[Rfam]
RNA sequence: GGCCAGGGGAAUUCCUGGCAGAGUGAUUUUUGACACUCCACAAUUAAAUCACAUUGCCAGGGAUUUCCAAUGGAUG
Dot-bracket structure: (.(((...(.(((((((((((.(((((((................))))))).)))))))))))...)..))).).

The family of this 76-nucleotide RNA from Neogobius melanostomus is "mir-23 microRNA precursor family". A search with the family's covariance model found it, with a score of 57 bits. Its family is annotated with RISC complex and gene silencing by miRNA in the Gene Ontology. Pairs were carried over by alignment from the consensus structure, which was predicted with PFOLD. The organism belongs to Neogobius, within Eukaryota.